The family of this 139-nucleotide RNA from Nonomuraea sp. WAC 01424 is "c-di-AMP riboswitch aptamer (ydaO/yuaA leader)". Rfam describes the family as follows. This family represents a conserved RNA structure found upstream of the ydaO and yuaA genes in Bacillus subtilis and related genes in other bacteria. Lineage of the source: Bacteria > Bacillati > Actinomycetota > Actinomycetes > Nonomuraea.
RNA sequence: GACCGUUGUACGCCUAAUCCCGGGCGUGUUGCCCGGGAGCCGGGGACCCAUCGCAUCCGGGGUGAAUCCGCGCCAGUGGUAGGGACAACUCCCAUGCCCGAACCCGUCAGCUAACCCGGCCGGCAGAGGGAGAGGAAUC
Numbered sequence: 001g002a003c004c005g006u007u008g009u010a011c012g013c014c015u016a017a018u019c020c021c022g023g024g025c026g027u028g029u030u031g032c033c034c035g036g037g038a039g040c041c042g043g044g045g046a047c048c049c050a051u052c053g054c055a056u057c058c059g060g061g062g063u064g065a066a067u068c069c070g071c072g073c074c075a076g077u078g079g080u081a082g083g084g085a086c087a088a089c090u091c092c093c094a095u096g097c098c099c100g101a102a103c104c105c106g107u108c109a110g111c112u113a114a115c116c117c118g119g120c121c122g123g124c125a126g127a128g129g130g131a132g133a134g135g136a137a138u139c
Stems, first nucleotide, its partner, number of pairs: 012124003018038009039120006049059001060105003068079004082099003